Rfam assigns this 61-nucleotide RNA sequence from Canis lupus to the family "Small Nucleolar RNA SNORD64". The human snoRNA HBII-13 belongs to the C/D family of snoRNAs. Clan: SNORD74 clan. By type it is a C/D-box small nucleolar RNA. Taxonomically the source falls in Canis lupus (Eukaryota, Bilateria, Mammalia, Laurasiatheria).
[Rfam]
RNA sequence: UGAUAUGAUGAGGUGUACUGAGCAUGAUGAAGUGUAGCUCAAUGUAAGUACUCUAAAGUCC
Numbered sequence: 001u002g003a004u005a006u007g008a009u010g011a012g013g014u015g016u017a018c019u020g021a022g023c024a025u026g027a028u029g030a031a032g033u034g035u036a037g038c039u040c041a042a043u044g045u046a047a048g049u050a051c052u053c054u055a056a057a058g059u060c061c
Stems, first nucleotide, its partner, number of pairs: 002060003010053003014047001019041005